[Rfam]
RNA sequence: GAUAACAAGACAACGAAAGCCCUACCUCUCAUUCGUCCUUACGGCUCCGAAGCCGCGCCAGUGUGAAUUGUAAAUCAAAACGUCUU
Dot-bracket structure: ................................(((..(((.(((((....))))).)..))..)))....................
Numbered sequence: 001g002a003u004a005a006c007a008a009g010a011c012a013a014c015g016a017a018a019g020c021c022c023u024a025c026c027u028c029u030c031a032u033u034c035g036u037c038c039u040u041a042c043g044g045c046u047c048c049g050a051a052g053c054c055g056c057g058c059c060a061g062u063g064u065g066a067a068u069u070g071u072a073a074a075u076c077a078a079a080a081c082g083u084c085u086u
Stems, first nucleotide, its partner, number of pairs: 033066003038061002040057001042055005
A member of the RNA family "BsrC" from Bacillus safensis, 86 nucleotides long. From the family's description: The 301 nucleotide sequence from Kouji Nakamura has been trimmed to a highly conserved ~85 nucleotide long core to form this family. The organism belongs to Bacillus, within Bacteria. It scores 79 bits against the family's covariance model. The family's RNA type in Rfam is small RNA.